cspA thermoregulator: a 429-nucleotide sequence from Vibrio sp. V28_P6S34P95. The source organism's lineage runs through Bacteria, Pseudomonadota, Vibrionales, Vibrionaceae and Vibrio. The family's consensus secondary structure is taken from published work. A reference for the family is Giuliodori et al. (2010), "The cspA mRNA is a thermosensor that modulates translation of the cold-shock protein CspA", Mol Cell.
RNA sequence: CAAAGAUUGCUCUAGACUCAAUGUUAGCUAGAAAUGAAGUUGAUUGUAUACACAUUGUUUCGUUGGAUUCCUUGUAACUCCCGUCGUGUCGUACGCAAUAGCAAUCUACUUUUCCACGCUAUCCGUGCCGAGAUCGGCCUAUAUAAAAUUGUUUUUUUAGGAUUUUUACUAUGUCUACUCCUGUUACUGGUACCGUUAAAUGGUUCAACGAAACGAAAGGUUUCGGCUUCAUUAAGCAAGAGAACGGUCCUGACGUUUUUGCUCACUUCAGUGCAAUCCAAGGCGACGGUUUCCGUACUUUGGCUGAAGGCCAAAAAGUUGAGUUUGUCAUUACUCAAGGUCAAAAAGGCCCUCAAGCUGAAAGCAUUAAAGUCCUGUAAUAGACUUCCAAAUUAUUCUAAUAGCCAGCCUUAGCGCUGGCUAUUUUUA
Number, nucleotide and partner (000 for none) at each position: 001c000002a000003a000004a018005g017006a000007u015008u014009g013010c000011u000012c000013u009014a008015g007016a000017c005018u004019c000020a000021a000022u000023g000024u239025u238026a000027g000028c236029u235030a000031g233032a000033a000034a000035u000036g000037a000038a000039g229040u000041u000042g228043a000044u226045u225046g000047u220048a000049u218050a000051c000052a000053c000054a000055u000056u215057g214058u213059u212060u000061c210062g209063u208064u207065g000066g206067a205068u000069u000070c203071c202072u000073u173074g172075u171076a170077a000078c000079u000080c000081c000082c000083g000084u000085c000086g000087u160088g000089u159090c000091g158092u000093a156094c000095g115096c000097a112098a111099u000100a000101g000102c000103a000104a000105u000106c000107u000108a000109c000110u000111u098112u097113u000114c000115c095116a000117c000118g000119c000120u000121a000122u000123c000124c000125g000126u000127g138128c137129c136130g000131a000132g000133a000134u000135c000136g129137g128138c127139c000140u000141a000142u000143a000144u000145a000146a000147a000148a000149u000150u000151g000152u000153u000154u000155u000156u093157u000158u091159a089160g087161g000162a000163u000164u000165u000166u000167u000168a000169c000170u076171a075172u074173g073174u000175c190176u189177a188178c000179u186180c000181c000182u000183g000184u000185u000186a179187c000188u177189g176190g175191u000192a000193c000194c000195g000196u000197u000198a000199a000200a000201u000202g071203g070204u000205u067206c066207a064208a063209c062210g061211a000212a059213a058214c057215g056216a000217a000218a049219g000220g047221u000222u000223u000224c000225g045226g044227c000228u042229u039230c000231a000232u000233u031234a000235a029236g028237c000238a025239a024240g000241a000242g000243a332244a331245c000246g329247g328248u000249c000250c000251u000252g260253a259254c000255g000256u000257u000258u000259u253260u252261g000262c000263u321264c000265a319266c318267u317268u316269c000270a000271g000272u313273g312274c310275a000276a000277u000278c303279c302280a301281a300282g299283g000284c000285g298286a000287c000288g000289g000290u000291u000292u000293c000294c000295g000296u000297a000298c285299u282300u281301u280302g279303g278304c000305u000306g000307a000308a000309g000310g274311c000312c273313a272314a000315a000316a268317a267318g266319u265320u000321g263322a000323g000324u000325u000326u000327g000328u247329c246330a000331u244332u243333a000334c000335u000336c000337a000338a353339g352340g351341u000342c000343a000344a000345a000346a000347a000348g000349g000350c000351c340352c339353u338354c377355a376356a000357g374358c372359u371360g000361a000362a368363a000364g000365c000366a000367u000368u362369a000370a000371a359372g358373u000374c357375c000376u355377g354378u000379a000380a393381u392382a000383g000384a000385c000386u000387u000388c000389c000390a000391a000392a381393u380394u000395a000396u000397u000398c000399u000400a425401a424402u423403a422404g421405c420406c419407a418408g417409c416410c000411u000412u000413a000414g000415c000416g409417c408418u407419g406420g405421c404422u403423a402424u401425u400426u000427u000428u000429a000